Notes:
The record is a 77-nucleotide sequence from Candidula unifasciata, which matches "mir-190 microRNA precursor family" in Rfam.
RNA sequence: GCCCCCGCCAGAUAUGUUUGAUAUAUUUGGUGGUGUGAACAGAUCUCACCAAUUAUCAGACAUGUCAUAGCGGAGGC
Numbered sequence: 001g002c003c004c005c006c007g008c009c010a011g012a013u014a015u016g017u018u019u020g021a022u023a024u025a026u027u028u029g030g031u032g033g034u035g036u037g038a039a040c041a042g043a044u045c046u047c048a049c050c051a052a053u054u055a056u057c058a059g060a061c062a063u064g065u066c067a068u069a070g071c072g073g074a075g076g077c
Stems, first nucleotide, its partner, number of pairs: 005073004011066013029050005

The match comes from Rfam's covariance-model search (54 bits). On this family, see Bar et al., Stem Cells 2008: "MicroRNA discovery and profiling in human embryonic stem cells by deep sequencing of small RNA libraries". The family has 76 seed sequences and 1,667 matches in Rfam 15.1.